[Rfam]
RNA sequence: ACCUUAUACAGAUGUAGUGACGCAAGACAGUGACACAUCUCCCUGUAAGGUGGUGUUUAGAUAGAAGUAUAAGCGACAAGUUCUAUUGCGUGACUUUUCAGUCGAAAUAGAAUGAGCUUGUAUGGAGUAGGUUAACCGUAAGACCUUGAAUUGCAAAAUUCUAAAAUUGACCUAGAAAUGAAUUUCUCAAAUUUCCUUAUUUCUAGUUACGGUGAA
Number, nucleotide and partner (000 for none) at each position: 001a051002c050003c049004u048005u047006a046007u045008a044009c000010a040011g039012a038013u037014g036015u035016a000017g034018u033019g000020a031021c030022g028023c000024a000025a000026g000027a000028c022029a000030g021031u020032g000033a018034c017035a015036c014037a013038u012039c011040u010041c000042c000043c000044u008045g007046u006047a005048a004049g003050g002051u001052g000053g000054u000055g000056u000057u000058u000059a000060g000061a000062u000063a000064g000065a000066a000067g123068u122069a121070u120071a119072a118073g117074c116075g000076a000077c000078a000079a000080g000081u112082u111083c110084u109085a108086u107087u106088g000089c000090g000091u000092g103093a102094c000095u100096u000097u000098u000099c000100a095101g000102u093103c092104g000105a000106a087107a086108u085109a084110g083111a082112a081113u000114g000115a000116g074117c073118u072119u071120g070121u069122a068123u067124g000125g000126a000127g000128u000129a146130g145131g144132u143133u142134a000135a213136c212137c211138g210139u209140a208141a167142g133143a132144c131145c130146u129147u000148g161149a160150a159151u158152u157153g000154c000155a000156a000157a152158a151159u150160u149161c148162u000163a000164a000165a000166a000167u141168u000169g000170a000171c000172c206173u205174a204175g203176a202177a201178a200179u199180g198181a197182a000183u000184u000185u000186c000187u000188c000189a000190a000191a000192u000193u000194u000195c000196c000197u181198u180199a179200u178201u177202u176203c175204u174205a173206g172207u000208u140209a139210c138211g137212g136213u135214g000215a000216a000

This 216-nucleotide sequence belongs to the Rfam family "IS605-orfB-I RNA". Rfam classes the family as a small RNA.